[Rfam]
RNA sequence: UGGCUACAAAAUAACUUAUUCUGUAGCCACUUUGAGUUACGAUAAUUACUAUGUUAAUUUACGAGAUUACAGUAACUUUUUACUAUAACGUCACGGUAAAUAUUCCCAUGUGUUAUAGUAAUCCAACUAUUGUAAAUAUGUAUUGACAUUAUCGUAAAUUAGUAUAUAAAAUUAUCGUAAAUGAAAAUGACUACAGAAUAACUUAUUUUGUAGCUC
Numbered sequence: 001u002g003g004c005u006a007c008a009a010a011a012u013a014a015c016u017u018a019u020u021c022u023g024u025a026g027c028c029a030c031u032u033u034g035a036g037u038u039a040c041g042a043u044a045a046u047u048a049c050u051a052u053g054u055u056a057a058u059u060u061a062c063g064a065g066a067u068u069a070c071a072g073u074a075a076c077u078u079u080u081u082a083c084u085a086u087a088a089c090g091u092c093a094c095g096g097u098a099a100a101u102a103u104u105c106c107c108a109u110g111u112g113u114u115a116u117a118g119u120a121a122u123c124c125a126a127c128u129a130u131u132g133u134a135a136a137u138a139u140g141u142a143u144u145g146a147c148a149u150u151a152u153c154g155u156a157a158a159u160u161a162g163u164a165u166a167u168a169a170a171a172u173u174a175u176c177g178u179a180a181a182u183g184a185a186a187a188u189g190a191c192u193a194c195a196g197a198a199u200a201a202c203u204u205a206u207u208u209u210g211u212a213g214c215u216c
Stems, first nucleotide, its partner, number of pairs: 002215013016201011028189002031186003037180011050166013065153003069149001070145003077136002079126002081120011095105002